[Rfam]
RNA sequence: UCGACCGUGAGGUCGAAUCUGAAGGAAGCUGGAGACAAAUGCACGAGCCAAGGUACACGAACUGGGUUUGAGGCAGGAUUAGUUGGAUGAGUCACCCAUACAUGAUGAAAUGCAAAGUCGCCAAAGGCUAAUCUUGUAGACCCCAGUGGUUGCGGGCAGAAAGAUGACGUU
Number, nucleotide and partner (000 for none) at each position: 001u016002c015003g014004a013005c012006c011007g000008u000009g000010a000011g006012g005013u004014c003015g002016a001017a000018u000019c000020u000021g000022a000023a000024g000025g000026a000027a000028g171029c000030u169031g168032g000033a000034g000035a000036c163037a000038a000039a000040u158041g157042c156043a000044c154045g153046a151047g150048c149049c148050a147051a000052g000053g000054u000055a000056c000057a000058c000059g000060a000061a000062c146063u145064g144065g143066g141067u140068u000069u000070g000071a000072g000073g137074c136075a135076g000077g133078a132079u131080u130081a129082g128083u127084u000085g113086g000087a111088u110089g000090a000091g106092u105093c104094a103095c000096c000097c000098a000099u000100a000101c000102a000103u094104g093105a092106u091107g000108a000109a000110a088111u087112g000113c085114a000115a000116a000117g000118u000119c000120g000121c000122c000123a000124a000125a000126g000127g083128c082129u081130a080131a079132u078133c077134u000135u075136g074137u073138a000139g000140a067141c066142c000143c065144c064145a063146g062147u050148g049149g048150u047151u046152g000153c045154g044155g000156g042157c041158a040159g000160a000161a000162a000163g036164a000165u000166g000167a000168c031169g030170u000171u028